[Rfam]
RNA sequence: AUUAUUCUUUAGCAAAGCAGCAGUGAUGUUGUGACGCAAAGCUAUAGGGUCUUGAUUAAGAUAGCCAGUUGCAAUU
Numbered sequence: 001a002u003u004a005u006u007c008u009u010u011a012g013c014a015a016a017g018c019a020g021c022a023g024u025g026a027u028g029u030u031g032u033g034a035c036g037c038a039a040a041g042c043u044a045u046a047g048g049g050u051c052u053u054g055a056u057u058a059a060g061a062u063a064g065c066c067a068g069u070u071g072c073a074a075u076u
Stems, first nucleotide, its partner, number of pairs: 012037002017032006040070004047066002049062003
RNA: c-di-GMP-I riboswitch aptamer